[Rfam]
RNA sequence: ACCUACCUACCACCCAGCACCAGAGGGCGGAAGUGGGGGAACCACAGGUUCCUCGGAUCGCCGGGCGCCCCUCGCCGGUGAUCCUGGGGCGAAGCCGCGCACGGCGGCCGGGUACUUCUUCCGACCCGAGCCCGACAGCUAACCUCACAGGCGUGCAGGAAGGAUCC
Dot-bracket structure: ..........(.((.....(.........)..((((((....((........................................))(((.....((((.....))))..((((..........))))...))).........)))))).)).)..............

Background
Shown here is a 167-nucleotide RNA from Kribbella flavida, a member of the family "c-di-AMP riboswitch aptamer (ydaO/yuaA leader)". A search with the family's covariance model found it, with a score of 66 bits. Taxonomically the source falls in Kribbella flavida (Bacteria, Bacillati, Actinomycetes, Kribbella).